[Rfam]
RNA: Flavo-1 RNA
Organism: Flavobacterium aquatile
RNA sequence: AAUUAGCCCUGAUUGAAGAGAAAAUACUUGCUUUUUCUGCAAGUAUUGUAACGGAAAGCAGGAAAACGG
Numbered sequence: 001a002a003u004u005a006g007c008c009c010u011g012a013u014u015g016a017a018g019a020g021a022a023a024a025u026a027c028u029u030g031c032u033u034u035u036u037c038u039g040c041a042a043g044u045a046u047u048g049u050a051a052c053g054g055a056a057a058g059c060a061g062g063a064a065a066a067c068g069g
Base pairs, nucleotide, nucleotide: 009061010060011059013057014056018052023047024046025045026044027043028042029041030040031039